[Rfam]
RNA: mir-290 microRNA precursor family
RNA sequence: GUGGGACUCAAACUGGGGGGGCACUUUCUGUGCUGAGAGCAAAGUGCCGCCACUGUUUGAGUUCCAC
Numbered sequence: 001g002u003g004g005g006a007c008u009c010a011a012a013c014u015g016g017g018g019g020g021g022c023a024c025u026u027u028c029u030g031u032g033c034u035g036a037g038a039g040c041a042a043a044g045u046g047c048c049g050c051c052a053c054u055g056u057u058u059g060a061g062u063u064c065c066a067c
Base pairs, nucleotide, nucleotide: 004064005063006062007061008060009059010058011057012056015053017051018050020048021047022046023045024044025043026042027041